The record is a 511-nucleotide RNA from Streptomyces vinaceus, which matches "Saccharopolyspora sRNA 350" in Rfam. Rfam classes the family as an antisense RNA. A reference for the family is Liu et al. (2013), "Prediction and characterization of small non-coding RNAs related to secondary metabolites in Saccharopolyspora erythraea", PLoS One. The match comes from Rfam's covariance-model search (155 bits). The organism belongs to Streptomyces, within Bacteria. Rfam 15.1 lists 1,170 matches to the family in 705 species.
RNA sequence: GUCGCGGUGUAGUCCCAGCCGCCGGCGCCGUCGAGCAGGGCGUGCUCGCCGAAGCGGUCGCCGUCCGCCAGUACGGCGACCGCGACCUCGUCUCCGUAUUUGCCGACGGAGGUCUGGUUGAUCCGGCCGUGGGCGAUCAGGUGGAUGUCGGUGGCGGGGGUGCCCCGCUCGACGAGGACCUCUCCGGCGCGGAAGUCGCGCUGGACGCACCGGGCGGCGAGCGCGGUCAGCACCUCCAGGUCGUCGAAGCCGCGCAGCAUGGCGAGUUCGCCGAGUUCACGGGGGAUGACGCGGACGUGGGCGCCGUCCUGGACGAACUCGAUGCGGCCGUCGCCGACGGUGUAGGUCAGGCGGCGGUUCACCCGGUAGGUGCCGCCCUUGGUCUCCACCCAGGGAAGCAUCUUGAGCAGCCAGCGGGAGGUGAUCUCCUGCAUCUGCGGGGCGGACUUGGUGGUGGUGGCGAGGUUGCGGGCAGCCGCCGUACCCAGGCUGGUCUGCCGGGGAGGCUCAA
Numbered sequence: 001g002u003c004g005c006g007g008u009g010u011a012g013u014c015c016c017a018g019c020c021g022c023c024g025g026c027g028c029c030g031u032c033g034a035g036c037a038g039g040g041c042g043u044g045c046u047c048g049c050c051g052a053a054g055c056g057g058u059c060g061c062c063g064u065c066c067g068c069c070a071g072u073a074c075g076g077c078g079a080c081c082g083c084g085a086c087c088u089c090g091u092c093u094c095c096g097u098a099u100u101u102g103c104c105g106a107c108g109g110a111g112g113u114c115u116g117g118u119u120g121a122u123c124c125g126g127c128c129g130u131g132g133g134c135g136a137u138c139a140g141g142u143g144g145a146u147g148u149c150g151g152u153g154g155c156g157g158g159g160g161u162g163c164c165c166c167g168c169u170c171g172a173c174g175a176g177g178a179c180c181u182c183u184c185c186g187g188c189g190c191g192g193a194a195g196u197c198g199c200g201c202u203g204g205a206c207g208c209a210c211c212g213g214g215c216g217g218c219g220a221g222c223g224c225g226g227u228c229a230g231c232a233c234c235u236c237c238a239g240g241u242c243g244u245c246g247a248a249g250c251c252g253c254g255c256a257g258c259a260u261g262g263c264g265a266g267u268u269c270g271c272c273g274a275g276u277u278c279a280c281g282g283g284g285g286a287u288g289a290c291g292c293g294g295a296c297g298u299g300g301g302c303g304c305c306g307u308c309c310u311g312g313a314c315g316a317a318c319u320c321g322a323u324g325c326g327g328c329c330g331u332c333g334c335c336g337a338c339g340g341u342g343u344a345g346g347u348c349a350g351g352c353g354g355c356g357g358u359u360c361a362c363c364c365g366g367u368a369g370g371u372g373c374c375g376c377c378c379u380u381g382g383u384c385u386c387c388a389c390c391c392a393g394g395g396a397a398g399c400a401u402c403u404u405g406a407g408c409a410g411c412c413a414g415c416g417g418g419a420g421g422u423g424a425u426c427u428c429c430u431g432c433a434u435c436u437g438c439g440g441g442g443c444g445g446a447c448u449u450g451g452u453g454g455u456g457g458u459g460g461c462g463a464g465g466u467u468g469c470g471g472g473c474a475g476c477c478g479c480c481g482u483a484c485c486c487a488g489g490c491u492g493g494u495c496u497g498c499c500g501g502g503g504a505g506g507c508u509c510a511a
Stems, first nucleotide, its partner, number of pairs: 006390004011385002014382002018328002021325002026321002031316002036312001038310003047303004052298001054233001058229001060227005065111001068108001075103001077102003082097003117222003122217002127212001129210002132206001134203002140197001143196001149191002154188002157185004163177001166174002235295003240290006250282003254278001256277003262269001329342004351379001353377005360372004391431005397425001399423003403418002407415001437476002440473001443470002446467001447465003451461002478509001480506001482504001484502003488498001